[Rfam]
RNA sequence: CACCCCAUCGCUAAGUCAAGGAUGCUUCCUUCCCCUGUGGAUACUCUAUGGAUACAUUCUGUUACAGCUUUGGGAAAUCAAAGAUGACUCGCUGCCCCCGCGGCCGUUAUGGUUGCGGGGAGGUCGACUUCCGUUUUGGUUGUCGGCCACCAGAGUCUGCGUGGGACGUUUUGAGUUGAGGACUGCCUCUGCUUUCUUGUAUUGCGGCCUGUGGCUUUUCUCUUAGUAUUGUCUUGCACAUGA
Numbered sequence: 001c002a003c004c005c006c007a008u009c010g011c012u013a014a015g016u017c018a019a020g021g022a023u024g025c026u027u028c029c030u031u032c033c034c035c036u037g038u039g040g041a042u043a044c045u046c047u048a049u050g051g052a053u054a055c056a057u058u059c060u061g062u063u064a065c066a067g068c069u070u071u072g073g074g075a076a077a078u079c080a081a082a083g084a085u086g087a088c089u090c091g092c093u094g095c096c097c098c099c100g101c102g103g104c105c106g107u108u109a110u111g112g113u114u115g116c117g118g119g120g121a122g123g124u125c126g127a128c129u130u131c132c133g134u135u136u137u138g139g140u141u142g143u144c145g146g147c148c149a150c151c152a153g154a155g156u157c158u159g160c161g162u163g164g165g166a167c168g169u170u171u172u173g174a175g176u177u178g179a180g181g182a183c184u185g186c187c188u189c190u191g192c193u194u195u196c197u198u199g200u201a202u203u204g205c206g207g208c209c210u211g212u213g214g215c216u217u218u219u220c221u222c223u224u225a226g227u228a229u230u231g232u233c234u235u236g237c238a239c240a241u242g243a
Stems, first nucleotide, its partner, number of pairs: 003074003007070001019060006027052003031041003086157005096120010122148007131139003161237004166232003178222004185215003190206003193201001

Small nucleolar RNA snR191: a 243-nucleotide sequence from Corynespora cassiicola. The base pairs follow the family's consensus structure, which was predicted with WAR. Its Rfam clan is "SNORA74 clan". A search with the family's covariance model found it, with a score of 53 bits. For this family Rfam cites "A snoRNA that guides the two most conserved pseudouridine modifications within rRNA confers a growth advantage in yeast" (Badis et al., RNA, 2003). Gene Ontology terms of the family: nucleolus and RNA processing.